Description:
mir-5890 microRNA precursor family: a 78-nucleotide sequence from Haemonchus placei. Lineage of the source: Eukaryota > Opisthokonta > Metazoa > Protostomia > Haemonchus. Gene Ontology terms of the family: RISC complex and miRNA-mediated post-transcriptional gene silencing. Rfam 15.1 lists 40 matches to the family in 2 species. Pairs were carried over by alignment from the consensus structure, which was predicted with RNAalifold. It scores 68 bits against the family's covariance model.
RNA sequence: AACUCUCAAUGGCAUAUGACUGAAUUGUGGGAGGACUUCUAUGAUUCUACCCCUUUCCAUUAUUAUGCUGCUUUGGAG
Numbered sequence: 001a002a003c004u005c006u007c008a009a010u011g012g013c014a015u016a017u018g019a020c021u022g023a024a025u026u027g028u029g030g031g032a033g034g035a036c037u038u039c040u041a042u043g044a045u046u047c048u049a050c051c052c053c054u055u056u057c058c059a060u061u062a063u064u065a066u067g068c069u070g071c072u073u074u075g076g077a078g
Stems, first nucleotide, its partner, number of pairs: 008072001010070007019061001021059002024056001027053001029052003032048004036043001